[Rfam]
RNA sequence: AAAGGAUCUAUGCAACACGAUUGAAAGUUUGAAGUUGGUCAUUUUUUAAAUGACUGAUUUUGGCUUUGUGAAUCCACGUGUAACUAAAAUGAGCAUUGUGCUUUGAUUUUUGGUACGCUGCACAGAUGUAGAAGAAGAAACACCAAUUAAGCCGGGAUAGUAACCGACAUAGAAUGGUUUUUGUCUGACUAUGUGUGUUUUACAUUU
Numbered sequence: 001a002a003a004g005g006a007u008c009u010a011u012g013c014a015a016c017a018c019g020a021u022u023g024a025a026a027g028u029u030u031g032a033a034g035u036u037g038g039u040c041a042u043u044u045u046u047u048a049a050a051u052g053a054c055u056g057a058u059u060u061u062g063g064c065u066u067u068g069u070g071a072a073u074c075c076a077c078g079u080g081u082a083a084c085u086a087a088a089a090u091g092a093g094c095a096u097u098g099u100g101c102u103u104u105g106a107u108u109u110u111u112g113g114u115a116c117g118c119u120g121c122a123c124a125g126a127u128g129u130a131g132a133a134g135a136a137g138a139a140a141c142a143c144c145a146a147u148u149a150a151g152c153c154g155g156g157a158u159a160g161u162a163a164c165c166g167a168c169a170u171a172g173a174a175u176g177g178u179u180u181u182u183g184u185c186u187g188a189c190u191a192u193g194u195g196u197g198u199u200u201u202a203c204a205u206u207u
Base pairs, nucleotide, nucleotide: 003129008125009124011122012121013120014119016117020114021113024110025109026108027107028105031102037055038054039053040052041051043049044048058091059089060088061087062085063084138200139199140198141197142196143195144193145192150190151189153187154186155185157184158183159182160181162179163178164177
This 207-nucleotide RNA from Schizosaccharomyces cryophilus belongs to the Rfam family "small nucleolar RNA snR98".
The family's consensus secondary structure was predicted with RNAalifold.
It is annotated as an H/ACA-box small nucleolar RNA.
The match comes from Rfam's covariance-model search (99 bits).
The source organism's lineage runs through Eukaryota, Dikarya, Schizosaccharomycetes, Schizosaccharomycetales and Schizosaccharomyces cryophilus.